[Rfam]
RNA sequence: GCUGGGCACCGUGGCUUGUGUCUGUAAUCCAAGUGUCUGGGAAGCUGAGGCUGGUGGAUUGCUUGAGCCCAGGAGUUCAAGGCUGCAGCGGGCUGUGUCGCGCAGGUGUCCGCACUGGGGUCUGCACCGACAUGGGGCCUCUGAGGAAGCUUGGAGGCUCCAGGUUGUCUAAGGAGGGGUGAACCGGCCCAGGCUGGGAACAGAGCAGGUCAAAGCUCCCUUGCUGACUGGUAGUGGGACAGCACCUGUAAAUGGCUCCUGUAGCCCAACCUGGGCAAGAGAGGGGGACCCAGCCUUUU
Numbered sequence: 001g002c003u004g005g006g007c008a009c010c011g012u013g014g015c016u017u018g019u020g021u022c023u024g025u026a027a028u029c030c031a032a033g034u035g036u037c038u039g040g041g042a043a044g045c046u047g048a049g050g051c052u053g054g055u056g057g058a059u060u061g062c063u064u065g066a067g068c069c070c071a072g073g074a075g076u077u078c079a080a081g082g083c084u085g086c087a088g089c090g091g092g093c094u095g096u097g098u099c100g101c102g103c104a105g106g107u108g109u110c111c112g113c114a115c116u117g118g119g120g121u122c123u124g125c126a127c128c129g130a131c132a133u134g135g136g137g138c139c140u141c142u143g144a145g146g147a148a149g150c151u152u153g154g155a156g157g158c159u160c161c162a163g164g165u166u167g168u169c170u171a172a173g174g175a176g177g178g179g180u181g182a183a184c185c186g187g188c189c190c191a192g193g194c195u196g197g198g199a200a201c202a203g204a205g206c207a208g209g210u211c212a213a214a215g216c217u218c219c220c221u222u223g224c225u226g227a228c229u230g231g232u233a234g235u236g237g238g239a240c241a242g243c244a245c246c247u248g249u250a251a252a253u254g255g256c257u258c259c260u261g262u263a264g265c266c267c268a269a270c271c272u273g274g275g276c277a278a279g280a281g282a283g284g285g286g287g288a289c290c291c292a293g294c295c296u297u298u299u
Stems, first nucleotide, its partner, number of pairs: 001045003004023006011016001028042003047297008059286002062283003067276007081266008090257001092256005098250001102249008110238002113236005119229004124224003128167004133162013168174002176219005186211004194203003
Dot-bracket structure: (((((((((.(....).))))))....(((.........)))))).((((((((....((.(((..(((((((.......((((((((.(.(((((.(...((((((((((.(((((.((((.(((.((((.(((((((((((((....))))))))))))).))))((...)).(((((.....((((....(((....)))....))))...)))))..))).))))..)))))))...))))))))).)))))).))))))))...)))))))....))).))...))))))))..
Rfam assigns this 299-nucleotide RNA sequence from Alligator sinensis to the family "Metazoan signal recognition particle RNA". The base pairs follow the family's consensus structure, which is taken from published work. Rfam classes the family as a non-coding RNA gene. Its family is annotated with SRP-dependent cotranslational protein targeting to membrane, signal sequence recognition and signal recognition particle, endoplasmic reticulum targeting in the Gene Ontology. From the family's description: The signal recognition particle (SRP) is a universally conserved ribonucleoprotein. Lineage of the source: Eukaryota > Eumetazoa > Sarcopterygii > Archelosauria > Alligator.